[Rfam]
RNA sequence: UUGCCUUAAACUAAUGAGUAAGGAAAACAAAGCGGGUGGUGGGAACUGCCCGCCGCGCUAACCCAAAAUUGGGCGCAAGAAUUUAUGGAGGGGAAAUAGGCUGGCCGGGUGUUGACGCUGCUUACUUUUGCAGAACUCUCUCGAGCGGGCCUCCCAC
Numbered sequence: 001u002u003g004c005c006u007u008a009a010a011c012u013a014a015u016g017a018g019u020a021a022g023g024a025a026a027a028c029a030a031a032g033c034g035g036g037u038g039g040u041g042g043g044a045a046c047u048g049c050c051c052g053c054c055g056c057g058c059u060a061a062c063c064c065a066a067a068a069u070u071g072g073g074c075g076c077a078a079g080a081a082u083u084u085a086u087g088g089a090g091g092g093g094a095a096a097u098a099g100g101c102u103g104g105c106c107g108g109g110u111g112u113u114g115a116c117g118c119u120g121c122u123u124a125c126u127u128u129u130g131c132a133g134a135a136c137u138c139u140c141u142c143g144a145g146c147g148g149g150c151c152u153c154c155c156a157c
Base pairs, nucleotide, nucleotide: 004023005022006021007020008019032053033052034051035050036049037048038047039046054075055074056073058071090157092155093154098152099151100150101149102148104146106143107142109140111138118133119132120131121130
The record is a 157-nucleotide RNA sequence from Dendrobium catenatum, which matches "U12 minor spliceosomal RNA" in Rfam.
The match comes from Rfam's covariance-model search (90 bits).
Rfam classes the family as a spliceosomal small nuclear RNA.
The family has 62 seed sequences and 2,106 matches in Rfam 15.1.
The base pairs follow the family's consensus structure.